[Rfam]
RNA: Streptomyces-metK RNA
Organism: Streptomyces somaliensis
RNA sequence: AUGGGACGCCCUGGUCCCGCGGCGGGGAGCGCCCGAUAAACUGUCCGCGGAACGUCACGGGGCGCAGCCCCUGCCGGUCCGCAAAUGAUCAGCCAGCAGCCGCUGCAACCCCAGGGAG
Dot-bracket structure: ................................................(((.((....((((......))))..)).))).............((((....)))).............